RNA sequence: UUCUUAUCUAGAGAGGGGGAGGGACUGGCCCUAUGAAUCCUCGGCAACAACUCUUAAGAGUAAUGUGCCAAUUCCAGUAGCAAAUAGCUAACAGAUAAGAA
Number, nucleotide and partner (000 for none) at each position: 001u101002u100003c099004u098005u097006a096007u095008c094009u000010a000011g000012a000013g042014a041015g040016g039017g038018g000019g000020a000021g031022g030023g029024a000025c077026u076027g075028g074029c023030c022031c021032u000033a000034u000035g000036a000037a000038u017039c016040c015041u014042c013043g069044g068045c067046a066047a000048c065049a064050a061051c060052u059053c058054u000055u000056a000057a000058g053059a052060g051061u050062a000063a000064u049065g048066u046067g045068c044069c043070a000071a000072u000073u093074c028075c027076a026077g025078u090079a089080g088081c087082a000083a000084a000085u000086a000087g081088c080089u079090a078091a000092c000093a073094g008095a007096u006097a005098a004099g003100a002101a001
Shown here is a 101-nucleotide RNA from Gracilibacillus dipsosauri, a member of the family "SAM riboswitch aptamer (S box leader)". Lineage of the source: Bacteria > Bacillota > Bacilli > Bacillaceae > Gracilibacillus. A search with the family's covariance model found it, with a score of 97 bits.